RNA sequence: AAUAUGUGAUGACAAAUGUUUCGGUCCCAGAUGAUGUCCAGUGAUAAGAUUUAACAUUUUUCUGAUGUU
Numbered sequence: 001a002a003u004a005u006g007u008g009a010u011g012a013c014a015a016a017u018g019u020u021u022c023g024g025u026c027c028c029a030g031a032u033g034a035u036g037u038c039c040a041g042u043g044a045u046a047a048g049a050u051u052u053a054a055c056a057u058u059u060u061u062c063u064g065a066u067g068u069u
Base pairs, nucleotide, nucleotide: 001069002068003067004066

Small nucleolar RNA SNORD73: a 69-nucleotide RNA from Sorex araneus. For this family Rfam cites "A novel snoRNA (U73) is encoded within the introns of the human and mouse ribosomal protein S3a genes" (Rebane et al., Gene, 1998). The source organism's lineage runs through Eukaryota, Eumetazoa, Mammalia, Soricidae and Sorex. Gene Ontology terms of the family: nucleolus and RNA processing. The base pairs follow the family's consensus structure, which was predicted with PFOLD. The sequence is in the family's curated seed alignment.